[Rfam]
Rfam assigns this 85-nucleotide RNA sequence from Cannabis sativa to the family "small nucleolar RNA snoR114". Its family is annotated with nucleolus and RNA processing in the Gene Ontology. A search with the family's covariance model found it, with a score of 65 bits. It is annotated as a C/D-box small nucleolar RNA. Taxonomically the source falls in Cannabis (Eukaryota, Mesangiospermae, Rosales, Cannabaceae). The literature on the family includes a 2009 paper in Nucleic Acids Res by Chen and Wu, "Mining small RNA sequencing data: a new approach to identify small nucleolar RNAs in Arabidopsis".

RNA sequence: AAGCUGUGAUGAUAAUUGCACUUCUGUGUUGGAGGGGUCCUACACCAUUAUCUUAUUUCAGAUUAAAUCAAGUGCUUCUGAGCUU
Numbered sequence: 001a002a003g004c005u006g007u008g009a010u011g012a013u014a015a016u017u018g019c020a021c022u023u024c025u026g027u028g029u030u031g032g033a034g035g036g037g038u039c040c041u042a043c044a045c046c047a048u049u050a051u052c053u054u055a056u057u058u059c060a061g062a063u064u065a066a067a068u069c070a071a072g073u074g075c076u077u078c079u080g081a082g083c084u085u
Base pairs, nucleotide, nucleotide: 001085002084003083004082